[Rfam]
RNA sequence: UCUCGACAAAGGCAAAGCUGACGAAAGCCAGCGACGCAAAGCUAGAGGGGCUUCCUUGUCCUGAAAGGGGUAAGUUGCCAGCCAGCCGCCGAA
Numbered sequence: 001u002c003u004c005g006a007c008a009a010a011g012g013c014a015a016a017g018c019u020g021a022c023g024a025a026a027g028c029c030a031g032c033g034a035c036g037c038a039a040a041g042c043u044a045g046a047g048g049g050g051c052u053u054c055c056u057u058g059u060c061c062u063g064a065a066a067g068g069g070g071u072a073a074g075u076u077g078c079c080a081g082c083c084a085g086c087c088g089c090c091g092a093a
Stems, first nucleotide, its partner, number of pairs: 012037002017032004022027001041086003047083002049079003056073007
RNA: c-di-GMP-I riboswitch aptamer
Organism: Paenibacillus ferrarius